[Rfam]
This 105-nucleotide RNA sequence from Corymbia citriodora belongs to the Rfam family "Small nucleolar RNA Z152/R70/R12/". The family's consensus secondary structure was predicted with PFOLD. The source organism's lineage runs through Eukaryota, Gunneridae, Pentapetalae, Myrtales and Corymbia citriodora. By type it is a C/D-box small nucleolar RNA. On this family, see Barneche et al., J Mol Biol 2001: "Identification of 66 box C/D snoRNAs in Arabidopsis thaliana: extensive gene duplications generated multiple isoforms predicting new ribosomal RNA 2'-O-methylation sites". It scores 74 bits against the family's covariance model. Gene Ontology terms of the family: nucleolus and RNA processing.

RNA sequence: GUUGCAGUGAUGAGAUUAAGGCACUCGUAGUGGGUGUCGAUGGGGCAGUGGAUCAAUCCGUGAGCCCAAUUUUUCAAUAAACGACUUCUCCUUCCACUGAGCAAC
Dot-bracket structure: (((((...............................................................................................)))))